This 111-nucleotide RNA sequence from Thermosinus carboxydivorans belongs to the Rfam family "PyrR binding site". A search with the family's covariance model found it, with a score of 56 bits. The organism belongs to Thermosinus carboxydivorans, within Bacteria. The base pairs follow the family's consensus structure, which is taken from published work. This family represents the PyrR binding site and terminator structure. This RNA structure is found upstream of a variety of genes involved in pyrimidine biosynthesis and transport. The alignment also includes a portion of the antiterminator structure. On this family, see Bonner et al., Nucleic Acids Res 2001: "Molecular recognition of pyr mRNA by the Bacillus subtilis attenuation regulatory protein PyrR". It is annotated as a cis-regulatory element.
[Rfam]
RNA sequence: AUUUCCUUUAAGUUGGUCCUGUGAGGCCGGCAAGGAUUUUGGCUACUCAAAAAAAUAUAACUUUGGUUGGCCAUGUCAACUCCUUGCUCGUUCGGCAGGGAGUUUUAUUGU
Numbered sequence: 001a002u003u004u005c006c007u008u009u010a011a012g013u014u015g016g017u018c019c020u021g022u023g024a025g026g027c028c029g030g031c032a033a034g035g036a037u038u039u040u041g042g043c044u045a046c047u048c049a050a051a052a053a054a055a056u057a058u059a060a061c062u063u064u065g066g067u068u069g070g071c072c073a074u075g076u077c078a079a080c081u082c083c084u085u086g087c088u089c090g091u092u093c094g095g096c097a098g099g100g101a102g103u104u105u106u107a108u109u110g111u
Stems, first nucleotide, its partner, number of pairs: 004036005013030006041072005047066005078104011